[Rfam]
RNA: S-element
Organism: Mesorhizobium denitrificans
RNA sequence: UGUCAAGGUGUAGGUCGUCGUUUCGACGAGCGGAAUUCUUUUGCCUUAUGAGAAGGUAAGAGACAUG
Dot-bracket structure: .......((.(.....(((.(((.(..(.(((((.....))))).)..)..))))))...).))...
Numbered sequence: 001u002g003u004c005a006a007g008g009u010g011u012a013g014g015u016c017g018u019c020g021u022u023u024c025g026a027c028g029a030g031c032g033g034a035a036u037u038c039u040u041u042u043g044c045c046u047u048a049u050g051a052g053a054a055g056g057u058a059a060g061a062g063a064c065a066u067g
Stems, first nucleotide, its partner, number of pairs: 008064002011061001017057003021054003025049001028046001030044005